The family of this 75-nucleotide RNA from Pelusios castaneus is "U1A polyadenylation inhibition element (PIE)". The organism belongs to Pelusios, within Eukaryota. A search with the family's covariance model found it, with a score of 65 bits. This family represents the U1A polyadenylation inhibition element (PIE). PIE is a regulatory RNA which is responsible for the regulation of the length of the polyA tail of the U1A pre-mRNA. The PIE is located in the U1A mRNA 3' UTR. PIE adopts a U-shaped structure, with binding sites for a single U1A protein at each bend and when complexed with the two proteins it blocks activity of poly(A) polymerase (PAP), and inhibits its activity.
RNA sequence: UAUUGAAGCAUUGUACCCAGAGUCUGCUGCUCAGACAUUGCACCUGGAGCUCUGUGUUUUGCAAUAAAUCCUCCC
Number, nucleotide and partner (000 for none) at each position: 001u000002a000003u000004u000005g053006a000007a051008g050009c049010a000011u000012u000013g000014u000015a000016c000017c047018c046019a045020g044021a000022g036023u035024c034025u033026g032027c000028u000029g000030c000031u000032c026033a025034g024035a023036c022037a000038u000039u000040g000041c000042a000043c000044c020045u019046g018047g017048a000049g009050c008051u007052c000053u005054g000055u000056g000057u000058u000059u000060u000061g000062c000063a000064a000065u000066a000067a000068a000069u000070c000071c000072u000073c000074c000075c000
Pairs were carried over by alignment from the consensus structure, which is taken from published work.